[Rfam]
Rfam assigns this 122-nucleotide sequence from Treponema maltophilum to the family "TD-1 RNA". A search with the family's covariance model found it, with a score of 65 bits. Rfam 15.1 lists 147 matches to the family in 9 species. The family's RNA type in Rfam is cis-regulatory element.

RNA sequence: GGCGGUUUCCGAGUUUACGUUGUAAACUCGUUUAUUUAUUGCGCUUUCUCAACUCUCGUUUGCGAAAGCGCUGCUAAAAAGUUUUUCGGAAGCUGACGCUUUCUGCAAAACUUUUUAUAGGA
Numbered sequence: 001g002g003c004g005g006u007u008u009c010c011g012a013g014u015u016u017a018c019g020u021u022g023u024a025a026a027c028u029c030g031u032u033u034a035u036u037u038a039u040u041g042c043g044c045u046u047u048c049u050c051a052a053c054u055c056u057c058g059u060u061u062g063c064g065a066a067a068g069c070g071c072u073g074c075u076a077a078a079a080a081g082u083u084u085u086u087c088g089g090a091a092g093c094u095g096a097c098g099c100u101u102u103c104u105g106c107a108a109a110a111c112u113u114u115u116u117a118u119a120g121g122a
Stems, first nucleotide, its partner, number of pairs: 011029008041071008076116010088103006
Dot-bracket structure: ..........((((((((...))))))))...........((((((((...............))))))))....((((((((((..((((((....))))))...))))))))))......